[Rfam]
The family of this 234-nucleotide part of an RNA from uncultured Fidelibacterota bacterium HF0010_18O13 is "Bacterial large subunit ribosomal RNA". Taxonomically the source falls in Fidelibacterota (Bacteria, Pseudomonadati). The family's consensus secondary structure is taken from published work. Its Rfam clan is "LSU clan". Rfam's curators put it in the seed alignment.
RNA sequence: GAGUUAGUCGUAUGCUGCUAGGUUAAGUAUUGUUAAAUACGGAGCCGAAGGGAAACCGAGUCUGAACAGGGCGAUUUAGUAUCAUGCGCUAGACCCGAAACCGGGUGAUCUAUCCAUGGCCAGGUUGAAAUUUAAGUAACAUUAAAUGGAGGACCGAACCCACUAAAGUUGAAAAUUUAGGGGAUGAGCUGUGGAUCGGAGUGAAAGGCUAAUCAAACUCGGAGAUAUCUGGUU
Number, nucleotide and partner (000 for none) at each position: 001g000002a000003g000004u000005u091006a090007g089008u000009c088010g087011u086012a085013u084014g083015c000016u081017g080018c079019u000020a000021g046022g045023u044024u043025a000026a000027g040028u039029a038030u000031u000032g000033u000034u000035a000036a000037a000038u029039a028040c027041g000042g000043a024044g023045c022046c021047g000048a000049a000050g057051g056052g000053a000054a000055a000056c051057c050058g000059a000060g072061u071062c070063u069064g000065a000066a000067c000068a000069g063070g062071g061072c060073g000074a000075u000076u000077u000078a000079g018080u017081a016082u000083c014084a013085u012086g011087c010088g009089c007090u006091a005092g000093a000094c232095c231096c000097g229098a000099a000100a000101c222102c221103g220104g219105g218106u217107g000108a000109u000110c198111u000112a196113u195114c194115c193116a192117u191118g190119g189120c188121c186122a000123g155124g154125u153126u152127g000128a000129a000130a147131u146132u145133u144134a143135a142136g000137u000138a000139a000140c000141a000142u135143u134144a133145a132146a131147u130148g000149g000150a000151g000152g126153a125154c124155c123156g000157a000158a000159c183160c182161c181162a000163c180164u179165a178166a177167a176168g000169u000170u000171g000172a000173a000174a000175a000176u167177u166178u165179a164180g163181g161182g160183g159184a000185u000186g121187a000188g120189c119190u118191g117192u116193g115194g114195a113196u112197c000198g110199g000200a210201g209202u208203g000204a000205a000206a000207g000208g202209c201210u200211a000212a000213u000214c000215a000216a000217a106218c105219u104220c103221g102222g101223a000224g000225a000226u000227a000228u000229c097230u000231g095232g094233u000234u000